Rfam assigns this 118-nucleotide RNA from Ancylobacter sp. TS-1 to the family "TPP riboswitch aptamer (THI element)".

Nucleotides: 118
Stems, first nucleotide, its partner, number of pairs: 007105004011068004016062001017045005052061003074099003080093004
Number, partner (000 for none) and nucleotide at each position: 001000g002000c003000c004000g005000u006000g007105u008104c009103c010102g011068a012067g013066g014065g015000g016062u017045g018044u019043c020042c021041c022000g023000c024000c025000g026000g027000c028000c029000u030000u031000u032000a033000u034000g035000g036000c037000c038000g039000a040000a041021g042020g043019g044018g045017c046000u047000g048000a049000g050000a051000u052061g053060g054059c055000a056000g057000c058000c059054g060053c061052c062016a063000g064000a065014c066013c067012c068011u069000u070000u071000g072000a073000a074099c075098c076097u077000g078000a079000u080093c081092c082091g083090g084000g085000u086000c087000a088000u089000g090083c091082c092081g093080g094000c095000g096000a097076a098075g099074g100000g101000a102010c103009g104008g105007a106000a107000c108000g109000a110000c111000g112000g113000c114000g115000g116000g117000a118000a
NCBI's taxonomy places the organism under Bacteria, Pseudomonadota, Alphaproteobacteria, Hyphomicrobiales, Ancylobacter.